[Rfam]
RNA sequence: CAGCAUGUUGCCAAGGUUUCUAGCUGGUAGUAGUCAUGGGAUCUCCACCUGCAUGUGAAAAUAAGCUAGAGAGACUCUUGACAGCACAGACCAGCAUAGUACCUGUAACUGCUACUCACCUUUUUUAUAUUU
Numbered sequence: 001c002a003g004c005a006u007g008u009u010g011c012c013a014a015g016g017u018u019u020c021u022a023g024c025u026g027g028u029a030g031u032a033g034u035c036a037u038g039g040g041a042u043c044u045c046c047a048c049c050u051g052c053a054u055g056u057g058a059a060a061a062u063a064a065g066c067u068a069g070a071g072a073g074a075c076u077c078u079u080g081a082c083a084g085c086a087c088a089g090a091c092c093a094g095c096a097u098a099g100u101a102c103c104u105g106u107a108a109c110u111g112c113u114a115c116u117c118a119c120c121u122u123u124u125u126u127a128u129a130u131u132u
Stems, first nucleotide, its partner, number of pairs: 011039002016035001018033002021030001068125006084112002087105003
The record is a 132-nucleotide RNA from Erinaceus europaeus, which matches "Small nucleolar RNA SNORA44" in Rfam.
The base pairs follow the family's consensus structure, which was predicted with PFOLD.
Its family is annotated with RNA processing and nucleolus in the Gene Ontology.
The family's RNA type in Rfam is H/ACA-box small nucleolar RNA.
The organism belongs to Erinaceus, within Eukaryota.
Its Rfam clan is "SNORA44 clan".
A search with the family's covariance model found it, with a score of 107 bits.
A reference for the family is Huttenhofer et al. (2001), "RNomics: an experimental approach that identifies 201 candidates for novel, small, non-messenger RNAs in mouse", EMBO J.
From the family's description: ACA44 is a member of the H/ACA class of snoRNA that guide the sites of modification of uridines to pseudouridines.